[Rfam]
RNA sequence: AAGUGAACACAGCUCUUUUAGAAUUUUUUCUGGAUUUCUGAUUUUGAUUGGAAAAUUCAA
Numbered sequence: 001a002a003g004u005g006a007a008c009a010c011a012g013c014u015c016u017u018u019u020a021g022a023a024u025u026u027u028u029u030c031u032g033g034a035u036u037u038c039u040g041a042u043u044u045u046g047a048u049u050g051g052a053a054a055a056u057u058c059a060a
Base pairs, nucleotide, nucleotide: 035054036053037052038051039050040049041048042047
Rfam assigns this 60-nucleotide RNA sequence from Rattus norvegicus to the family "U7 small nuclear RNA". Taxonomically the source falls in Rattus (Eukaryota, Teleostomi, Theria, Euarchontoglires). Pairs were carried over by alignment from the consensus structure, which was predicted with PFOLD.